[Rfam]
This 114-nucleotide sequence from Sinocyclocheilus grahami belongs to the Rfam family "Potassium channel RNA editing signal".
Lineage of the source: Eukaryota > Opisthokonta > Actinopteri > Cypriniphysae > Sinocyclocheilus.
The family has 85 seed sequences and 14,095 matches in Rfam 15.1.

Nucleotides: 114
Stems, first nucleotide, its partner, number of pairs: 001114002004111002007108005014101003018097004037077004049063003
Number, partner (000 for none) and nucleotide at each position: 001114g002113u003000g004111g005110g006000g007108u008107a009106u010105g011104g012000a013000g014101a015100c016099a017000u018097g019096u020095a021094c022000c023000c024000c025000g026000u027000u028000a029000c030000u031000a032000u033000u034000g035000g036000g037077g038076g039075c040074a041000a042000g043000a044000u045000a046000g047000u048000a049063g050062g051061c052000u053000c054000u055000c056000u057000a058000u059000g060000u061051g062050c063049c064000a065000u066000u067000g068000c069000c070000g071000g072000a073000g074040u075039g076038c077037u078000a079000a080000c081000g082000a083000u084000u085000g086000c087000a088000c089000u090000u091000c092000c093000a094021g095020u096019g097018c098000c099016u100015g101014u102000g103000a104011u105010u106009g107008u108007g109000u110005c111004c112000a113002a114001c